[Rfam]
RNA sequence: GGGAGAGCGCUUGGAAUUCCCUGUAGUUUAGCAGUGUUAAUAGCCUUUUCUUUGGCCAGAUUAGGCGGUUAGUGAAUC
Numbered sequence: 001g002g003g004a005g006a007g008c009g010c011u012u013g014g015a016a017u018u019c020c021c022u023g024u025a026g027u028u029u030a031g032c033a034g035u036g037u038u039a040a041u042a043g044c045c046u047u048u049u050c051u052u053u054g055g056c057c058a059g060a061u062u063a064g065g066c067g068g069u070u071a072g073u074g075a076a077u078c
Base pairs, nucleotide, nucleotide: 001021002020003019004018005017037072038071039070040069041068043066044065045064046063049060050059051058

This 78-nucleotide RNA belongs to the Rfam family "L13-Bacteroidia ribosomal protein leader". By type it is a cis-regulatory leader. The sequence is in the family's curated seed alignment. Pairs were carried over by alignment from the consensus structure, which is taken from published work.